RNA sequence: CUUCACCGAACCCAGCCACAGCGGCUGACCGUCCGCCCGCUCCUGCCCGUACGUCGCCAGCAGCGCCUGCGCCUC
Numbered sequence: 001c002u003u004c005a006c007c008g009a010a011c012c013c014a015g016c017c018a019c020a021g022c023g024g025c026u027g028a029c030c031g032u033c034c035g036c037c038c039g040c041u042c043c044u045g046c047c048c049g050u051a052c053g054u055c056g057c058c059a060g061c062a063g064c065g066c067c068u069g070c071g072c073c074u075c
Base pairs, nucleotide, nucleotide: 014026015025016024017023033069038065039064043060044059045058047056049054

Rfam assigns this 75-nucleotide RNA sequence from Streptomyces sp. So13.3 to the family "ASpks TB sRNA". Rfam classes the family as an antisense RNA. NCBI's taxonomy places the organism under Bacteria, Actinomycetota, Actinomycetes, Streptomycetaceae, Streptomyces.